A member of the RNA family "Y RNA" from Pongo abelii, 88 nucleotides long. Taxonomically the source falls in Pongo (Eukaryota, Vertebrata, Amniota, Eutheria). About the family: Y RNAs are components of the Ro ribonucleoprotein particle (Ro RNP), in association with Ro60 and La proteins. The Y RNAs and Ro60 and La proteins are well conserved, but the function of the Ro RNP is not known. In humans the RNA component can be one of four small RNAs -- hY1, hY3, hY4 and hY5.

RNA sequence: GGCUGGGCCCAGUGCAGUAGUGUUUAUAACCAGUUACAGAUUUCUUUGUUUCUUCUCCACUAUUACUGUUUCAGUUGACUAGCCUUAA
Numbered sequence: 001g002g003c004u005g006g007g008c009c010c011a012g013u014g015c016a017g018u019a020g021u022g023u024u025u026a027u028a029a030c031c032a033g034u035u036a037c038a039g040a041u042u043u044c045u046u047u048g049u050u051u052c053u054u055c056u057c058c059a060c061u062a063u064u065a066c067u068g069u070u071u072c073a074g075u076u077g078a079c080u081a082g083c084c085u086u087a088a
Base pairs, nucleotide, nucleotide: 001084002083003082004081005080006079008077011075014072016067017066018065019064020063021062028050029049030048032046033045